A member of the RNA family "DABA-DC-AT RNA" from Grimontia indica, 155 nucleotides long. The family's RNA type in Rfam is cis-regulatory element. Rfam's curators put it in the seed alignment.
[Rfam]
RNA sequence: ACAAUCUCGAACGUAGAGCUUUUCGAGACAUACGCGGCGCAAUGUUGAAGAAGUUGUCGUCGCACCGUAGGUACUAGGAAAUGGUUUUCUAGUAGAAGGGCAUUAAUAGAGCUGUCUGGCUUCAACGAAGUCGGGGCAUAUUGAGGAACCCAACA
Numbered sequence: 001a002c003a004a005u006c007u008c009g010a011a012c013g014u015a016g017a018g019c020u021u022u023u024c025g026a027g028a029c030a031u032a033c034g035c036g037g038c039g040c041a042a043u044g045u046u047g048a049a050g051a052a053g054u055u056g057u058c059g060u061c062g063c064a065c066c067g068u069a070g071g072u073a074c075u076a077g078g079a080a081a082u083g084g085u086u087u088u089c090u091a092g093u094a095g096a097a098g099g100g101c102a103u104u105a106a107u108a109g110a111g112c113u114g115u116c117u118g119g120c121u122u123c124a125a126c127g128a129a130g131u132c133g134g135g136g137c138a139u140a141u142u143g144a145g146g147a148a149c150c151c152a153a154c155a
Stems, first nucleotide, its partner, number of pairs: 006027006034063006040056003072094010115135008